[Rfam]
Overview: Rfam assigns this 65-nucleotide sequence from Enterobacter sp. 638 to the family "DnaX ribosomal frameshifting element". The literature on the family includes a 1997 paper in J Mol Biol by Larsen et al., "Structural probing and mutagenic analysis of the stem-loop required for Escherichia coli dnaX ribosomal frameshifting: programmed efficiency of 50%". Rfam's curators write: This family represents a ribosomal frameshifting element found in the mRNA of the dnaX gene in E. coli. The dnaX gene has two encoded products tau and gamma which are produced in a 1:1 ratio. The gamma protein is synthesised due to programmed frameshifting and is shorter than tau. The two products of the dnaX gene are DNA polymerase III subunits.
RNA sequence: CGCAGGGAGCAACCAAGCCAAAAAAGAGUGAACCGGCAGCGCCAGGAAGAGCGCGGCCGGUUAAU
Numbered sequence: 001c002g003c004a005g006g007g008a009g010c011a012a013c014c015a016a017g018c019c020a021a022a023a024a025a026g027a028g029u030g031a032a033c034c035g036g037c038a039g040c041g042c043c044a045g046g047a048a049g050a051g052c053g054c055g056g057c058c059g060g061u062u063a064a065u
Stems, first nucleotide, its partner, number of pairs: 032061006039054002043049001